Background: RAGATH-18 RNA: a 60-nucleotide RNA. The base pairs follow the family's consensus structure, which is taken from published work. Rfam classes the family as a small RNA.
[Rfam]
RNA sequence: CCUUUGGACUGCUAUACCAAACGGGAGUAGGUUACGAAACCGGGCAGGAUGAAUAAGGAA
Dot-bracket structure: ((((....(((((........(((.....(....)....)))))))).......))))..